[Rfam]
RNA sequence: CCUAUUGAGUGUCAUACAAAAUGAUAGUAGAUGUAAAGUCUUUGCUUUACUUUGAGGUCAGACACGUUGAUGUAGGAA
Numbered sequence: 001c002c003u004a005u006u007g008a009g010u011g012u013c014a015u016a017c018a019a020a021a022u023g024a025u026a027g028u029a030g031a032u033g034u035a036a037a038g039u040c041u042u043u044g045c046u047u048u049a050c051u052u053u054g055a056g057g058u059c060a061g062a063c064a065c066g067u068u069g070a071u072g073u074a075g076g077a078a
Base pairs, nucleotide, nucleotide: 001076002075003074004073005072009065010064011063012062013061022060023059024058030053031052033050034049035048036047037046038045
RNA: RAGATH-18 RNA